[Rfam]
RNA sequence: CGUUCUGUGGCGUAGUUGGUUAACGCACCCAGUCUAGUGUAUUGGGAGUUGUGGGAUCGAAGCCCACCAGAACGA
Dot-bracket structure: (((((((..((((.........))))..(((((.......))))).....(((((.......)))))))))))).
RNA: tRNA